[Rfam]
Nucleotides: 086
Base pairs, nucleotide, nucleotide: 002085003084004083005082006081
Number, partner (000 for none) and nucleotide at each position: 001000a002085g003084c004083a005082a006081c007000g008000g009000u010000g011000a012000u013000g014000a015000g016000c017000c018000u019000u020000u021000a022000c023000a024000g025000a026000c027000c028000u029000g030000u031000a032000a033000u034000g035000a036000c037000u038000u039000g040000c041000g042000g043000a044000u045000g046000u047000g048000a049000u050000c051000g052000c053000a054000a055000u056000u057000u058000u059000u060000u061000a062000u063000g064000a065000a066000c067000a068000u069000c070000u071000a072000a073000g074000g075000g076000a077000c078000u079000g080000a081006g082005u083004u084003g085002c086000u
A member of the RNA family "Small nucleolar RNA SNORD25" from Momordica charantia, 86 nucleotides long.
The source organism's lineage runs through Eukaryota, Gunneridae, fabids, Momordiceae and Momordica.
It scores 77 bits against the family's covariance model.
Rfam links the family to the GO terms nucleolus and RNA processing.
The family has 12 seed sequences and 985 matches in Rfam 15.1.